[Rfam]
RNA sequence: AAUGAGGGACUAAGAGCUGUGGUGUUCGCUGCCUCUCCAUGCCUUCCACGGUGUCAUUGCCCUCAGAGA
Numbered sequence: 001a002a003u004g005a006g007g008g009a010c011u012a013a014g015a016g017c018u019g020u021g022g023u024g025u026u027c028g029c030u031g032c033c034u035c036u037c038c039a040u041g042c043c044u045u046c047c048a049c050g051g052u053g054u055c056a057u058u059g060c061c062c063u064c065a066g067a068g069a
Base pairs, nucleotide, nucleotide: 003065004064005063006062007061008060016052017051018050019049020048021047022046
Dot-bracket structure: ..((((((.......(((((((.......................))))))).......))))))....
Description
Shown here is a 69-nucleotide RNA from Trypanosoma conorhini, a member of the family "Trypanosomatid snoRNA TB3Cs2H1". Rfam links the family to the GO terms nucleolus and RNA processing. Lineage of the source: Eukaryota > Euglenozoa > Metakinetoplastina > Trypanosomatidae > Trypanosoma. The match comes from Rfam's covariance-model search (83 bits).